[Rfam]
RNA: Bacterial RNase P class A
RNA sequence: CCAGUUGACCGGGUGGCCGCUGGCACGGGGGUAACCGCGUGCCGGAGGAAAGUCCGGGCUCCUUCGAAACACGGUGACGGCUAACGGCCGCCGGGGGCGACCCCAGGGAAAGUGCCACAGAAAGCAAACCGCCGGCCCUCGGGCCGGCAAGGGUGAAAGGGUGCGGUAAGAGCGCACCGGGCCGCUGGCAACAGGGGCCGCACGGUAAACCCCACCGGGAGCAAGACCAAAUAGGGACGACGCGGGGCAACCCGGCCUGUUUCGAGGCUAUGUCGUCCGGGUUGGUUGCACGAGCGCGCCGGCAACGGCCGCCACAGAUGAAUGGUCACCACGUCGUGGAAACACGGCCCUACAGAACCCGGCUUAUAGGUCAACUGGCACU
Number, nucleotide and partner (000 for none) at each position: 001c378002c377003a376004g375005u374006u373007g372008a371009c370010c369011g367012g330013g329014u328015g327016g326017c325018c324019g000020c045021u044022g043023g042024c041025a040026c039027g038028g000029g000030g000031g000032u000033a000034a000035c000036c000037g000038c027039g026040u025041g024042c023043c022044g021045g020046a000047g000048g000049a000050a365051a364052g363053u000054c362055c361056g360057g359058g358059c221060u220061c219062c218063u000064u000065c000066g000067a000068a262069a261070c000071a000072c217073g216074g215075u214076g213077a000078c090079g089080g088081c087082u000083a000084a000085c000086g000087g081088c080089c079090g078091c000092c106093g104094g103095g102096g101097g000098c000099g000100a000101c096102c095103c094104c093105a000106g092107g212108g211109a000110a000111a000112g210113u209114g206115c205116c204117a000118c000119a000120g000121a000122a000123a000124g000125c000126a000127a000128a000129c152130c151131g148132c147133c146134g145135g144136c143137c142138c000139u000140c000141g000142g137143g136144c135145c134146g133147g132148c131149a000150a000151g130152g129153g000154u000155g000156a000157a000158a000159g000160g178161g177162u176163g175164c174165g173166g000167u000168a000169a000170g000171a000172g000173c165174g164175c163176a162177c161178c160179g201180g199181g198182c197183c196184g000185c194186u193187g192188g000189c000190a000191a000192c187193a186194g185195g000196g183197g182198c181199c180200g000201c179202a000203c000204g116205g115206u114207a000208a000209a113210c112211c108212c107213c076214a075215c074216c073217g072218g062219g061220a060221g059222c000223a000224a000225g287226a286227c285228c284229a000230a000231a000232u000233a000234g000235g278236g277237a276238c275239g274240a273241c000242g000243c000244g000245g000246g000247g000248c000249a000250a000251c000252c000253c000254g269255g268256c267257c266258u265259g000260u000261u069262u068263c000264g000265a258266g257267g256268c255269u254270a000271u000272g000273u240274c239275g238276u237277c236278c235279g000280g000281g000282u000283u000284g228285g227286u226287u225288g000289c000290a000291c000292g000293a000294g313295c000296g000297c000298g309299c308300c307301g306302g000303c000304a000305a000306c301307g300308g299309c298310c000311g000312c000313c294314a000315c000316a000317g000318a000319u000320g000321a000322a000323u000324g018325g017326u016327c015328a014329c013330c012331a000332c000333g000334u000335c000336g000337u000338g000339g000340a000341a000342a000343c000344a000345c000346g000347g000348c000349c000350c000351u000352a000353c000354a000355g000356a000357a000358c058359c057360c056361g055362g054363c052364u051365u050366a000367u011368a000369g010370g009371u008372c007373a006374a005375c004376u003377g002378g001379c000380a000381c000382u000